[Rfam]
Nucleotides: 078
Stems, first nucleotide, its partner, number of pairs: 007072001009070005015064007023056003027052001029050003
Number, partner (000 for none) and nucleotide at each position: 001000g002000a003000u004000u005000u006000c007072g008000c009070u010069c011068c012067a013066u014000a015064c016063u017062u018061c019060u020059u021058u022000a023056c024055a025054u026000u027052c028000c029050a030049u031048a032000u033000g034000c035000u036000u037000a038000u039000u040000u041000a042000a043000u044000a045000u046000a047000c048031u049030a050029u051000u052027g053000a054025a055024u056023g057000c058021a059020a060019g061018g062017a063016a064015g065000c066013a067012u068011g069010g070009a071000a072007c073000u074000c075000u076000c077000a078000a

The record is a 78-nucleotide sequence from Drosophila willistoni, which matches "mir-1 microRNA precursor family" in Rfam. This family represents the microRNA (miRNA) mir-1 family. miRNAs are transcribed as ~70nt precursors (modelled here) and subsequently processed by the Dicer enzyme to give a ~22nt product. In this case the mature sequence comes from the 3' arm of the precursor. The extents of the hairpin precursors are not generally known and are estimated based on hairpin prediction. The products are thought to have regulatory roles through complementarity to mRNA. The involvement of Dicer in miRNA processing suggests a relationship with the phenomenon of RNA interference. miRNAs are numbered based on the sequence of the mature RNA. This family also contains the mir-206 from human, which appears to be related to mir-1. Rfam links the family to the GO terms RISC complex and miRNA-mediated post-transcriptional gene silencing. Pairs were carried over by alignment from the consensus structure, which was predicted with RNAalifold.